This 64-nucleotide RNA from Liparis tanakae belongs to the Rfam family "Selenocysteine insertion sequence 1". Rfam's curators write: The incorporation of selenocysteine into a protein sequence is directed by an in-frame UGA codon (usually a stop codon) within the coding region of the mRNA. Selenoprotein mRNAs contain a conserved secondary structure in the 3' UTR that is required for the distinction of UGA stop from UGA selenocysteine. The selenocysteine insertion sequence (SECIS) is around 60 nt in length and adopts a hairpin structure which is sufficiently well-defined and conserved to act as a computational screen for selenoprotein genes. It is annotated as a cis-regulatory element. Rfam 15.1 lists 3,793 matches to the family in 721 species. The organism belongs to Liparis, within Eukaryota. The base pairs follow the family's consensus structure, which is taken from published work.

RNA sequence: GCCAGAUAAUGAUGGCCUGCACUAAAACCCAAAGCUGGGGAGUGUGGGCCUGAUGUCCCCUGGC
Numbered sequence: 001g002c003c004a005g006a007u008a009a010u011g012a013u014g015g016c017c018u019g020c021a022c023u024a025a026a027a028c029c030c031a032a033a034g035c036u037g038g039g040g041a042g043u044g045u046g047g048g049c050c051u052g053a054u055g056u057c058c059c060c061u062g063g064c
Stems, first nucleotide, its partner, number of pairs: 001064005014050010029038003